[Rfam]
RNA sequence: UAAUCUAUAUGGAGCAUAUCCUCAUUUAGCUAUGUCAGGCCCACAUCUGAAUACUCAUAAUUACUUGUUGUCGUAAGCCCAACUACAUCAUCGACAUUGAAAAAUAGAGGAUAGUUAUUGUGUGCAUAGUGACUUUUUUAAAUU
Numbered sequence: 001u002a003a004u005c006u007a008u009a010u011g012g013a014g015c016a017u018a019u020c021c022u023c024a025u026u027u028a029g030c031u032a033u034g035u036c037a038g039g040c041c042c043a044c045a046u047c048u049g050a051a052u053a054c055u056c057a058u059a060a061u062u063a064c065u066u067g068u069u070g071u072c073g074u075a076a077g078c079c080c081a082a083c084u085a086c087a088u089c090a091u092c093g094a095c096a097u098u099g100a101a102a103a104a105u106a107g108a109g110g111a112u113a114g115u116u117a118u119u120g121u122g123u124g125c126a127u128a129g130u131g132a133c134u135u136u137u138u139u140a141a142a143u144u
Stems, first nucleotide, its partner, number of pairs: 004142001006140002009136001012133001018127002023122003027117005